[Rfam]
RNA sequence: UGAUGGGGGGAGGACAACGUAAUACCUUGACCGGGUCGUUUCCGUCUUGGCGACGGCUCGAACAUGAUGCUUUUUCAUGUCAUAGUUACACUGACCAUCA
Number, nucleotide and partner (000 for none) at each position: 001u100002g099003a098004u097005g096006g095007g000008g000009g000010g000011a000012g000013g000014a000015c000016a000017a000018c000019g000020u000021a000022a000023u000024a000025c000026c000027u000028u000029g000030a000031c000032c000033g000034g000035g000036u000037c000038g000039u000040u000041u000042c000043c000044g000045u000046c000047u000048u000049g000050g000051c000052g000053a000054c000055g000056g000057c000058u000059c000060g000061a000062a000063c000064a000065u000066g000067a000068u000069g000070c000071u000072u000073u000074u000075u000076c000077a000078u000079g000080u000081c000082a000083u000084a000085g000086u000087u000088a000089c000090a000091c000092u000093g000094a000095c006096c005097a004098u003099c002100a001
RNA: Small nucleolar RNA SNORD46
Organism: Aphanomyces astaci